Record summary: This 95-nucleotide RNA belongs to the Rfam family "DUF3800-VII RNA". The sequence is in the family's curated seed alignment.
RNA sequence: AAUACUUGAAUGCCGAGGAAAUUAUGGGGAUGCUGAUUAAUUCAGCUCCAGCAUGCUGAGACAUGUGGGAUCGCAUAACGGAGAGGUAUUCUUUU
Numbered sequence: 001a002a003u004a005c006u007u008g009a010a011u012g013c014c015g016a017g018g019a020a021a022u023u024a025u026g027g028g029g030a031u032g033c034u035g036a037u038u039a040a041u042u043c044a045g046c047u048c049c050a051g052c053a054u055g056c057u058g059a060g061a062c063a064u065g066u067g068g069g070a071u072c073g074c075a076u077a078a079c080g081g082a083g084a085g086g087u088a089u090u091c092u093u094u095u
Base pairs, nucleotide, nucleotide: 001090002089003088004087005086006085007084011082013081014080015079022078023077024076025075026074028049029048030047032046033045034044035043052065053064054063055062
Rfam classes the family as a small RNA. Pairs were carried over by alignment from the consensus structure, which is taken from published work.